About this RNA
Small nucleolar RNA snoR53Y: a 74-nucleotide sequence from Brassica oleracea. The base pairs follow the family's consensus structure, which was predicted with WAR.

RNA sequence: AUUCCCUAUGAUGGCUUAACCAUGCUAAUACUGAUUUCUUUUGAUUGAAACAACGUUAAUUGACUGAGGGAAUA
Dot-bracket structure: (((((...............................................................))))).